[Rfam]
RNA sequence: GACCGUAACGGAUCGUUAACCUUUCCGGAUUAUCAACGGGCCAUGUCCAGCGUGCUGGAUAUCGAGUGGAUCCGUCCACUCUGUUUGAUGCCUCCCUGUUCGACUUCAUCAAAGCCGUCCUCCGGGGCGGCUUUUUUUCG
Numbered sequence: 001g002a003c004c005g006u007a008a009c010g011g012a013u014c015g016u017u018a019a020c021c022u023u024u025c026c027g028g029a030u031u032a033u034c035a036a037c038g039g040g041c042c043a044u045g046u047c048c049a050g051c052g053u054g055c056u057g058g059a060u061a062u063c064g065a066g067u068g069g070a071u072c073c074g075u076c077c078a079c080u081c082u083g084u085u086u087g088a089u090g091c092c093u094c095c096c097u098g099u100u101c102g103a104c105u106u107c108a109u110c111a112a113a114g115c116c117g118u119c120c121u122c123c124g125g126g127g128c129g130g131c132u133u134u135u136u137u138u139c140g
Base pairs, nucleotide, nucleotide: 001037003010017032018031019030021028022027045060046059047058048057064081065080066079067078068077069076087100088099089098090097111134112133113132114131115130116129117128118127119126120125